Rfam assigns this 151-nucleotide RNA sequence from Peromyscus maniculatus to the family "U12 minor spliceosomal RNA". NCBI's taxonomy places the organism under Eukaryota, Sarcopterygii, Theria, Myomorpha, Peromyscus maniculatus. Its Rfam clan is "U2 clan". Pairs were carried over by alignment from the consensus structure. Rfam classes the family as a spliceosomal small nuclear RNA. On this family, see Tarn and Steitz, Trends Biochem Sci 1997: "Pre-mRNA splicing: the discovery of a new spliceosome doubles the challenge".
[Rfam]
RNA sequence: AUGCCUUAAAUUUAUGAGUAAGGAAAAUAACGAUGUGGGGUGACGCCAGAGUCCUCAUUGCUAAUGUGAGAAGAAUUUUUGAGUGGGUAAAGGUUGUCCCUUAAUGAGACCUGCCUACUUUGCUGGAUGCCUGGGUGCGGUAAUCUGCCUG
Numbered sequence: 001a002u003g004c005c006u007u008a009a010a011u012u013u014a015u016g017a018g019u020a021a022g023g024a025a026a027a028u029a030a031c032g033a034u035g036u037g038g039g040g041u042g043a044c045g046c047c048a049g050a051g052u053c054c055u056c057a058u059u060g061c062u063a064a065u066g067u068g069a070g071a072a073g074a075a076u077u078u079u080u081g082a083g084u085g086g087g088u089a090a091a092g093g094u095u096g097u098c099c100c101u102u103a104a105u106g107a108g109a110c111c112u113g114c115c116u117a118c119u120u121u122g123c124u125g126g127a128u129g130c131c132u133g134g135g136u137g138c139g140g141u142a143a144u145c146u147g148c149c150u151g
Base pairs, nucleotide, nucleotide: 004023005022006021007020008019032053033052034051036049038047039046054070055069056068057067058066084151085150086149087148088147091146092145093144094143095142096141097140100135101134104132106130108128110126111125113123114122